mir-130 microRNA precursor family: a 74-nucleotide RNA sequence from Paramuricea clavata. Rfam links the family to the GO terms miRNA-mediated post-transcriptional gene silencing and RISC complex.
[Rfam]
RNA sequence: UACUAGCCCAAUGCUCUUCCAACUGAGCUACCGUCCUGACCGCGUAGCUCAGUUGGAAGAGCAUUGGGCUAGUA
Dot-bracket structure: (((..((((((.(((((((((((((((((((............))))))))))))))))))).))))))..)))
Numbered sequence: 001u002a003c004u005a006g007c008c009c010a011a012u013g014c015u016c017u018u019c020c021a022a023c024u025g026a027g028c029u030a031c032c033g034u035c036c037u038g039a040c041c042g043c044g045u046a047g048c049u050c051a052g053u054u055g056g057a058a059g060a061g062c063a064u065u066g067g068g069c070u071a072g073u074a
Stems, first nucleotide, its partner, number of pairs: 001074003006069006013062019